[Rfam]
Small nucleolar RNA SNORA17: a 132-nucleotide RNA sequence from Mus musculus.
The family's RNA type in Rfam is H/ACA-box small nucleolar RNA.
A reference for the family is Ofengand and Bakin (1997), "Mapping to nucleotide resolution of pseudouridine residues in large subunit ribosomal RNAs from representative eukaryotes, prokaryotes, archaebacteria, mitochondria and chloroplasts", J Mol Biol.
From the family's description: snoRNA ACA 17 belongs to the H/ACA family of snoRNAs and is predicted to guide pseudouridylation of the 28S rRNA at positions U4659 and U4598. It shares the same host gene together with ACA43. NB This family has a high threshold value to exclude a large number of closely related sequences that do not appear to have conserved H and ACA boxes, and may be pseudogenes.
The family is grouped with related families in Rfam's "SNORA17 clan".
RNA sequence: CGAGCCCCUAGAGGCCUUGUGGGUGUGGCUGCUGUGUUACGUGUACAGCAACAGCUGGCAGAGAGGAGAGAGGCCAUGACUACACUCAGUGUACUGACCUUUCAACAUCUGAAUGAUUAGUAGCCUAAUUCU
Numbered sequence: 001c002g003a004g005c006c007c008c009u010a011g012a013g014g015c016c017u018u019g020u021g022g023g024u025g026u027g028g029c030u031g032c033u034g035u036g037u038u039a040c041g042u043g044u045a046c047a048g049c050a051a052c053a054g055c056u057g058g059c060a061g062a063g064a065g066g067a068g069a070g071a072g073g074c075c076a077u078g079a080c081u082a083c084a085c086u087c088a089g090u091g092u093a094c095u096g097a098c099c100u101u102u103c104a105a106c107a108u109c110u111g112a113a114u115g116a117u118u119a120g121u122a123g124c125c126u127a128a129u130u131c132u
Base pairs, nucleotide, nucleotide: 004059005058006057008054009053013049019046020045021044024041025040026039027038028037029036068129071126072125073124074123076121077120083115084114086112087111088110089109090107091106092105